The family of this 68-nucleotide RNA sequence from Propioniciclava tarda is "Actino-pnp RNA".
RNA sequence: GCCGGUCCUCGGUAGUGGCUUUCGGGAUGCGACACGGUCGUUCCCGCGGGCCUCGAUCGAAGACCGAC
Numbered sequence: 001g002c003c004g005g006u007c008c009u010c011g012g013u014a015g016u017g018g019c020u021u022u023c024g025g026g027a028u029g030c031g032a033c034a035c036g037g038u039c040g041u042u043c044c045c046g047c048g049g050g051c052c053u054c055g056a057u058c059g060a061a062g063a064c065c066g067a068c
Stems, first nucleotide, its partner, number of pairs: 001068001003066005009060005017052005023046005028040002
NCBI's taxonomy places the organism under Bacteria, Bacillati, Actinomycetes, Propionibacteriales, Propioniciclava.